[Rfam]
RNA sequence: AGUCUUUCUCGCCUUCUCUUCCCGAUUCUUCCUGGAAUCAGGAAGAGCUGUGUUGAGGAGGGGAAAAUAAAAAGUA
Numbered sequence: 001a002g003u004c005u006u007u008c009u010c011g012c013c014u015u016c017u018c019u020u021c022c023c024g025a026u027u028c029u030u031c032c033u034g035g036a037a038u039c040a041g042g043a044a045g046a047g048c049u050g051u052g053u054u055g056a057g058g059a060g061g062g063g064a065a066a067a068u069a070a071a072a073a074g075u076a
Base pairs, nucleotide, nucleotide: 014059015058016057017056018055021052023050024049029044030043031042032041033040034039
Rfam assigns this 76-nucleotide sequence from Microcebus murinus to the family "mir-320 microRNA precursor family". Pairs were carried over by alignment from the consensus structure, which was predicted with RNAalifold. NCBI's taxonomy places the organism under Eukaryota, Sarcopterygii, Amniota, Cheirogaleidae, Microcebus.